[Rfam]
RNA sequence: GCAAAGACGCCGGUUGAAGGAUGACUCGGCUUGGUAAGUGAUGAAGGACGUGGCAAGCUGCGAUAAGCCCGGGGUAGGUGCAUGCGACCGUUGAUCCCGGGAUUUCCGAAUGAGGUCUCUCUUUACACUCCCUUGCUUUCAGCUUGGGAGGGCGAACCGUCCGAAGUGAAGCAUCUGAGUAGGACGAGGAGGAGAAAUCAAUCGAGAUUCCGCUAGUAGCGGCGAGCGAAAACGGAAGAGCCCAAACUGAACCUGCCACGGUAACGUGGUAGGGAUGUGGUGUGCUAUGGCGUUGGACGCAGUUCUCUGAGCAAAAGUGCUCUGGAACGUGCCGGCGAAGAGGGUGAUACCCCCGUAUGCAAUGGGGAACUGGAUUCUGCCAUAGCGAGAGUAACUGGCCUUGGCAGUGGCCAGUGACUAUGGGUGAAAGUAGCAUCCAAGGCUAAAUAUUCACCAAGACCGAUAGCACACUAGUACCGUGAGGGAAAGUUGAAAAGUACCCCGGAAGGGGGGUGAAAAGUGUCUGAAAUCAACCGGUUACAGACG
Dot-bracket structure: ........(((((((((.....(((..((((((((((........((((((........))).....((((((...(((.......)))......))))))...)))....(((....)))......(((((.............)))))......((((((.....((....))......))))).).........((....))...((((......((.....)).....))))..((((....(((.......((((....)))).........))).......((((...((.(............(((...(.((.(......).)))..(...).(((.......)))...)))............).))..))))...........(((((((........)))))))......(((((.......)))))..)))).....)).)))))).))...............((....))....)).................................).....)))))))))........
RNA: Archaeal large subunit ribosomal RNA, nucleotides 10 to 555
Organism: Nitrososphaera viennensis